[Rfam]
Record summary: A member of the RNA family "TPP riboswitch aptamer (THI element)" from Rugosimonospora africana, 111 nucleotides long. Its family is annotated with thiamine pyrophosphate binding in the Gene Ontology. The organism belongs to Rugosimonospora, within Bacteria.
RNA sequence: UUCGUCCGACAGGGGAGCGCACAGCGCUGAGAGUGUGGCCGCGGUUUCGGCCACAGACCCUCGAACCUGAUCUGGGUAAUGCCAGCGCAGGGAGUUCGGUCUCGACCUCCA
Numbered sequence: 001u002u003c004g005u006c007c008g009a010c011a012g013g014g015g016a017g018c019g020c021a022c023a024g025c026g027c028u029g030a031g032a033g034u035g036u037g038g039c040c041g042c043g044g045u046u047u048c049g050g051c052c053a054c055a056g057a058c059c060c061u062c063g064a065a066c067c068u069g070a071u072c073u074g075g076g077u078a079a080u081g082c083c084a085g086c087g088c089a090g091g092g093a094g095u096u097c098g099g100u101c102u103c104g105a106c107c108u109c110c111a
Stems, first nucleotide, its partner, number of pairs: 006099004011061004017027004034055008066091004072085004
Dot-bracket structure: .....((((.((((..((((...))))......((((((((......))))))))..))))....((((..((((......))))..))))....))))............
On this family, see Miranda-Rios et al., Proc Natl Acad Sci U S A 2001: "A conserved RNA structure (thi box) is involved in regulation of thiamin biosynthetic gene expression in bacteria".